A member of the RNA family "Glycine riboswitch aptamer" from Variovorax sp. Root473, 90 nucleotides long. About the family: This family represents the bacterial glycine riboswitch. The base pairs follow the family's consensus structure. Taxonomically the source falls in Variovorax (Bacteria, Pseudomonadati, Betaproteobacteria, Burkholderiales). It scores 38 bits against the family's covariance model.

[Rfam]
RNA sequence: CCAACAAUUGCAGGAGAGCGGGUCUCACGGAGGCCCUACCGAAGGCGCAAACUCCCAUAAACGCUCAGGUCGGCCCGACGGAGUUCCAGG
Number, nucleotide and partner (000 for none) at each position: 001c000002c000003a000004a000005c000006a085007a084008u083009u082010g000011c080012a000013g079014g000015a000016g000017a000018g000019c000020g036021g035022g034023u033024c000025u000026c000027a000028c000029g000030g000031a000032g000033g023034c022035c021036c020037u000038a070039c069040c068041g066042a065043a000044g000045g064046c063047g062048c000049a000050a000051a058052c000053u000054c000055c000056c000057a000058u051059a000060a000061a000062c047063g046064c045065u042066c041067a000068g040069g039070u038071c000072g000073g000074c000075c000076c000077g000078a000079c013080g011081g000082a009083g008084u007085u006086c000087c000088a000089g000090g000